[Rfam]
RNA sequence: UGCUUUUUUCGCCCAGGCGGAGCUCGACCGCGUUCUGAAGAAGUAAACGCUUACAUUGACCAAUAUCGGAGUAUCUAUGGGGUCGAGCCAGUCUGCAAGGUGUUGCAGGUUGCCCCU
Numbered sequence: 001u002g003c004u005u006u007u008u009u010c011g012c013c014c015a016g017g018c019g020g021a022g023c024u025c026g027a028c029c030g031c032g033u034u035c036u037g038a039a040g041a042a043g044u045a046a047a048c049g050c051u052u053a054c055a056u057u058g059a060c061c062a063a064u065a066u067c068g069g070a071g072u073a074u075c076u077a078u079g080g081g082g083u084c085g086a087g088c089c090a091g092u093c094u095g096c097a098a099g100g101u102g103u104u105g106c107a108g109g110u111u112g113c114c115c116c117u
Stems, first nucleotide, its partner, number of pairs: 017031004079116004089112002092109007

ALIL pseudoknot: a 117-nucleotide sequence from Nitrosomonas europaea. The family has 26 seed sequences and 2,146 matches in Rfam 15.1. Rfam's curators put it in the seed alignment. A reference for the family is Mazauric et al. (2008), "Apical loop-internal loop RNA pseudoknots: a new type of stimulator of -1 translational frameshifting in bacteria", J Biol Chem. It is annotated as a cis-regulatory element. Gene Ontology term of the family: positive regulation of translational frameshifting.